[Rfam]
RNA sequence: CCCGCAGAAUCUGGAGAGCGGCGCACAGGAUGCGCCCACCGAAGGGGCUAACGGCGCAACGCCGGAAAAUCUCAGGUGCAGGGACAGAGGGGUGUGA
Numbered sequence: 001c002c003c004g005c006a007g008a009a010u011c012u013g014g015a016g017a018g019c020g021g022c023g024c025a026c027a028g029g030a031u032g033c034g035c036c037c038a039c040c041g042a043a044g045g046g047g048c049u050a051a052c053g054g055c056g057c058a059a060c061g062c063c064g065g066a067a068a069a070u071c072u073c074a075g076g077u078g079c080a081g082g083g084a085c086a087g088a089g090g091g092g093u094g095u096g097a
Base pairs, nucleotide, nucleotide: 010088011087012086013085020036021035022034023033038077039076040075041073042072045071046070052064053063
RNA: Glycine riboswitch aptamer